Overview:
The family of this 56-nucleotide RNA sequence is "Plastid-ccsA-ndhD-2 3UTR RNA". Plastid ccsA-ndhD-2 is a non-coding RNA (ncRNA) recognised in plastids. It was found in the three prime untranslated region (3UTR) of ccsA and ndhD genes, its 3UTR location suggests a role in transcript maturation. Pairs were carried over by alignment from the consensus structure, which was predicted with LocARNA. On this family, see Stern and Gruissem, Cell 1987: "Control of plastid gene expression: 3' inverted repeats act as mRNA processing and stabilizing elements, but do not terminate transcription". The family's RNA type in Rfam is cis-regulatory element.
[Rfam]
RNA sequence: UUGGCGCGAACCCUGUGAAUCAAAUAUUGUAGUGAUUCACAGGGUUCUCAUCAGUU
Numbered sequence: 001u002u003g004g005c006g007c008g009a010a011c012c013c014u015g016u017g018a019a020u021c022a023a024a025u026a027u028u029g030u031a032g033u034g035a036u037u038c039a040c041a042g043g044g045u046u047c048u049c050a051u052c053a054g055u056u
Stems, first nucleotide, its partner, number of pairs: 004051001006049001008047015